[Rfam]
This 97-nucleotide sequence from Achromatium sp. WMS3 belongs to the Rfam family "Bacterial small signal recognition particle RNA". On this family, see Rosenblad et al., Nucleic Acids Res 2003: "SRPDB: Signal Recognition Particle Database". The organism belongs to Achromatium, within Bacteria. Its Rfam clan is "SRP clan". The family's RNA type in Rfam is non-coding RNA gene. The signal recognition particle (SRP) is a universally conserved ribonucleoprotein involved in the co-translational targeting of proteins to membranes.
RNA sequence: UGUUGGUUCCUUCGCAGCGCGAAACCGUAAAUCCGGUCAGGUCUGGAAGGAAGCAGCCGUAGCGGUGGAUGCGGGUGCCGAAGUGUGGCUAAUAUUG
Numbered sequence: 001u002g003u004u005g006g007u008u009c010c011u012u013c014g015c016a017g018c019g020c021g022a023a024a025c026c027g028u029a030a031a032u033c034c035g036g037u038c039a040g041g042u043c044u045g046g047a048a049g050g051a052a053g054c055a056g057c058c059g060u061a062g063c064g065g066u067g068g069a070u071g072c073g074g075g076u077g078c079c080g081a082a083g084u085g086u087g088g089c090u091a092a093u094a095u096u097g
Stems, first nucleotide, its partner, number of pairs: 004091005010083005015075001018073004024066005034059004042051003